Record summary:
The record is a 78-nucleotide RNA from Rhamnella rubrinervis, which matches "small nucleolar RNA snoR117" in Rfam. A reference for the family is Chen and Wu (2009), "Mining small RNA sequencing data: a new approach to identify small nucleolar RNAs in Arabidopsis", Nucleic Acids Res. The family's RNA type in Rfam is C/D-box small nucleolar RNA. Rfam 15.1 lists 419 matches to the family in 211 species.
RNA sequence: GGCCUGUGAUGCUUAGUCAUUUGUCCGUACCAUCUGAAAAUGUCCGAUGUACUUGUAUUCUUUUGUUUUCUGAGGCCU
Numbered sequence: 001g002g003c004c005u006g007u008g009a010u011g012c013u014u015a016g017u018c019a020u021u022u023g024u025c026c027g028u029a030c031c032a033u034c035u036g037a038a039a040a041u042g043u044c045c046g047a048u049g050u051a052c053u054u055g056u057a058u059u060c061u062u063u064u065g066u067u068u069u070c071u072g073a074g075g076c077c078u
Stems, first nucleotide, its partner, number of pairs: 001077004

Gene Ontology terms of the family: RNA processing and nucleolus.